Background: The family of this 114-nucleotide sequence from Chelydra serpentina is "Potassium channel RNA editing signal". Pairs were carried over by alignment from the consensus structure, which is taken from published work. It scores 79 bits against the family's covariance model. The organism belongs to Chelydra, within Eukaryota. It is annotated as a cis-regulatory element.
RNA sequence: GUAGGCUAUGGCGACAUCUACCCCAAAACUCUCUUAGGCAAAAUAGUUGGAGGGUUGUGCUGUAUUGCUGGAGUGCUGGUGAUUGCUCUUCCUAUCCCAAUCAUUGUAAAUAAC
Numbered sequence: 001g002u003a004g005g006c007u008a009u010g011g012c013g014a015c016a017u018c019u020a021c022c023c024c025a026a027a028a029c030u031c032u033c034u035u036a037g038g039c040a041a042a043a044u045a046g047u048u049g050g051a052g053g054g055u056u057g058u059g060c061u062g063u064a065u066u067g068c069u070g071g072a073g074u075g076c077u078g079g080u081g082a083u084u085g086c087u088c089u090u091c092c093u094a095u096c097c098c099a100a101u102c103a104u105u106g107u108a109a110a111u112a113a114c
Stems, first nucleotide, its partner, number of pairs: 001114002004111001007108005013102002020095001037077004049063001051061001